[Rfam]
RNA sequence: CGAGCGACGGGAGGCGAUGAAGCGCGGUCAAGAUCCCGGUCGCCGUGACCGCGUGGAGCCAGUGGCGAGCCCGACCCACCGCGUC
Numbered sequence: 001c002g003a004g005c006g007a008c009g010g011g012a013g014g015c016g017a018u019g020a021a022g023c024g025c026g027g028u029c030a031a032g033a034u035c036c037c038g039g040u041c042g043c044c045g046u047g048a049c050c051g052c053g054u055g056g057a058g059c060c061a062g063u064g065g066c067g068a069g070c071c072c073g074a075c076c077c078a079c080c081g082c083g084u085c
Stems, first nucleotide, its partner, number of pairs: 002084001004082003009077003013060003022054008038072002040068005
RNA: c-di-GMP-II-GCG riboswitch aptamer